Shown here is a 159-nucleotide sequence from Salmonella enterica, a member of the family "Salmonella enterica sRNA STnc300". The organism belongs to Salmonella enterica subsp. enterica serovar Agona, within Bacteria. It is one of the family's seed sequences.
[Rfam]
RNA sequence: UUUUUUAUAACCGAUUGAAAAUAAAUGUUUUUAAUUUGAAUCUUGUCUGGAUUUCUAAAAAAUAAUUAAAAAUUAUUAAUAUAAUUUUUUUCUGUCGCGGUUGACUCAUCUCCUGAAAAUGCCGUGGGUUCUCGUCCUUCAGGACGAUAUUCUUUUGAG
Dot-bracket structure: ................((((.....((...((......))...))......))))............(((((((((....))))))))).....(((((((....(((.....)))....)))))))....((((((....))))))............
Numbered sequence: 001u002u003u004u005u006u007a008u009a010a011c012c013g014a015u016u017g018a019a020a021a022u023a024a025a026u027g028u029u030u031u032u033a034a035u036u037u038g039a040a041u042c043u044u045g046u047c048u049g050g051a052u053u054u055c056u057a058a059a060a061a062a063u064a065a066u067u068a069a070a071a072a073u074u075a076u077u078a079a080u081a082u083a084a085u086u087u088u089u090u091u092c093u094g095u096c097g098c099g100g101u102u103g104a105c106u107c108a109u110c111u112c113c114u115g116a117a118a119a120u121g122c123c124g125u126g127g128g129u130u131c132u133c134g135u136c137c138u139u140c141a142g143g144a145c146g147a148u149a150u151u152c153u154u155u156u157g158a159g
Stems, first nucleotide, its partner, number of pairs: 017055004026045002031040002068089009095127007106116003132147006